[Rfam]
RNA sequence: CGGUCUGCGGGAGGCGAUGACGCGCGGGCCAAUGCCGGCCGCCGGGACCGCGCGGAGCCACUGGCGAGACCGACCCGCGGGUGC
Numbered sequence: 001c002g003g004u005c006u007g008c009g010g011g012a013g014g015c016g017a018u019g020a021c022g023c024g025c026g027g028g029c030c031a032a033u034g035c036c037g038g039c040c041g042c043c044g045g046g047a048c049c050g051c052g053c054g055g056a057g058c059c060a061c062u063g064g065c066g067a068g069a070c071c072g073a074c075c076c077g078c079g080g081g082u083g084c
Stems, first nucleotide, its partner, number of pairs: 003082009013059003022053006029046001037071002040066004